[Rfam]
RNA sequence: CCCAUCCAGGAUGACGAGUUGAUCUCGUACAUUCUCCAUGGGCUCGACAUCGACUACCAGCCGCUCGUCUCCGCCCUCGACGCCCGCGUCACGCCCGUCAAGCUUGAUGAGCUAUAUGCCAUGCUGAGUAACUUCGAUC
Numbered sequence: 001c002c003c004a005u006c007c008a009g010g011a012u013g014a015c016g017a018g019u020u021g022a023u024c025u026c027g028u029a030c031a032u033u034c035u036c037c038a039u040g041g042g043c044u045c046g047a048c049a050u051c052g053a054c055u056a057c058c059a060g061c062c063g064c065u066c067g068u069c070u071c072c073g074c075c076c077u078c079g080a081c082g083c084c085c086g087c088g089u090c091a092c093g094c095c096c097g098u099c100a101a102g103c104u105u106g107a108u109g110a111g112c113u114a115u116a117u118g119c120c121a122u123g124c125u126g127a128g129u130a131a132c133u134u135c136g137a138u139c
Stems, first nucleotide, its partner, number of pairs: 004138003008134001088108004093103001
Rfam assigns this 139-nucleotide RNA from Triticum turgidum to the family "Small nucleolar RNA Z247". Rfam classes the family as a C/D-box small nucleolar RNA. Rfam 15.1 lists 7,071 matches to the family in 142 species.